[Rfam]
RNA sequence: ACAAAGGCUCUUUUCAGAGCCGCCCACAUUUCCCAUAAAGGGUUG
Numbered sequence: 001a002c003a004a005a006g007g008c009u010c011u012u013u014u015c016a017g018a019g020c021c022g023c024c025c026a027c028a029u030u031u032c033c034c035a036u037a038a039a040g041g042g043u044u045g
Base pairs, nucleotide, nucleotide: 006021007020008019009018010017011016
Rfam assigns this 45-nucleotide sequence from Prunella fulvescens to the family "Histone 3' UTR stem-loop". Pairs were carried over by alignment from the consensus structure, which is taken from published work.